[Rfam]
RNA sequence: UCAUGAGUCUAAGUACUAGUGCCGCAGGAGAUUGCAUUUGGAAGUUUAAGAAACGUUCCUGCUGCUCAAGUGCUUAACUUUGUGG
Numbered sequence: 001u002c003a004u005g006a007g008u009c010u011a012a013g014u015a016c017u018a019g020u021g022c023c024g025c026a027g028g029a030g031a032u033u034g035c036a037u038u039u040g041g042a043a044g045u046u047u048a049a050g051a052a053a054c055g056u057u058c059c060u061g062c063u064g065c066u067c068a069a070g071u072g073c074u075u076a077a078c079u080u081u082g083u084g085g
Base pairs, nucleotide, nucleotide: 001085002084003083004082005081006080007079010076011075012074013073014072015071016070017069019067024062025061026060027059028058029057030056

The family of this 85-nucleotide sequence from Cimex lectularius is "mir-252 microRNA precursor family".
Pairs were carried over by alignment from the consensus structure, which was predicted with RNAalifold.
Rfam 15.1 lists 422 matches to the family in 306 species.
The family is grouped with related families in Rfam's "mir-252 microRNA precursor family".